A member of the RNA family "Small nucleolar RNA SNORA77" from Dipodomys ordii, 127 nucleotides long. About the family: ACA63 (SNORA77) is a member of the H/ACA class of snoRNAs that guide the sites of modification of uridines to pseudouridines.
RNA sequence: GCAGACUCACUCUGCACCUGGCUGCAGCCCCAGGCGGGUGCUUUUUCUGUCUGCUAGAGAAACAGUUCCAAGGUGCUGUGGCCCCCUUGACCAGUCAGGGGUAAUACAGCUGCCUGGGGGUACAGCU
Numbered sequence: 001g002c003a004g005a006c007u008c009a010c011u012c013u014g015c016a017c018c019u020g021g022c023u024g025c026a027g028c029c030c031c032a033g034g035c036g037g038g039u040g041c042u043u044u045u046u047c048u049g050u051c052u053g054c055u056a057g058a059g060a061a062a063c064a065g066u067u068c069c070a071a072g073g074u075g076c077u078g079u080g081g082c083c084c085c086c087u088u089g090a091c092c093a094g095u096c097a098g099g100g101g102u103a104a105u106a107c108a109g110c111u112g113c114c115u116g117g118g119g120g121u122a123c124a125g126c127u
Base pairs, nucleotide, nucleotide: 001054002053003052004051005050006049014041015040016039017038018037019036020035022033023032024031068118069117071115072114073113074112075110076109077108078107079106080105085101086100087099
By type it is an H/ACA-box small nucleolar RNA. Its family is annotated with RNA processing and nucleolus in the Gene Ontology. The base pairs follow the family's consensus structure, which was predicted with RNAalifold. Rfam 15.1 lists 843 matches to the family in 607 species.